The family of this 110-nucleotide RNA sequence is "drum RNA". Rfam's curators put it in the seed alignment. Rfam describes the family as follows. Firmicutes, Bacteroidetes (1 example), Proteobacteria (2 examples), Spirochaetes (2 examples).
RNA sequence: GAACGUGGAAGCAAGAUGUCGGUUCGCUUUCGGUGUCUUGCGAAGUUCUAUGGAGGGUUGUGUGAUAACCACAUAGCGAAUAAGUCUUGGACUGAAAGAAAACACACUAU
Numbered sequence: 001g002a003a004c005g006u007g008g009a010a011g012c013a014a015g016a017u018g019u020c021g022g023u024u025c026g027c028u029u030u031c032g033g034u035g036u037c038u039u040g041c042g043a044a045g046u047u048c049u050a051u052g053g054a055g056g057g058u059u060g061u062g063u064g065a066u067a068a069c070c071a072c073a074u075a076g077c078g079a080a081u082a083a084g085u086c087u088u089g090g091a092c093u094g095a096a097a098g099a100a101a102a103c104a105c106a107c108u109a110u
Stems, first nucleotide, its partner, number of pairs: 001048004011041011024079004062105003083093004